Rfam assigns this 54-nucleotide RNA from Megalops atlanticus to the family "UnaL2 LINE 3' element". Taxonomically the source falls in Megalops (Eukaryota, Opisthokonta, Metazoa, Eumetazoa). The family's consensus secondary structure is taken from published work. Gene Ontology term of the family: transposition, RNA-mediated. The literature on the family includes a 2004 paper in RNA by Baba et al., "Solution structure of an RNA stem-loop derived from the 3' conserved region of eel LINE UnaL2".
[Rfam]
RNA sequence: UGUAUGCACUUUUGUACGUCGCUUUGGAUAAAAGCGCCUGCUAAAUAAGUAAAU
Numbered sequence: 001u002g003u004a005u006g007c008a009c010u011u012u013u014g015u016a017c018g019u020c021g022c023u024u025u026g027g028a029u030a031a032a033a034g035c036g037c038c039u040g041c042u043a044a045a046u047a048a049g050u051a052a053a054u
Base pairs, nucleotide, nucleotide: 013043014041015040016039020036021035022034023033024032025031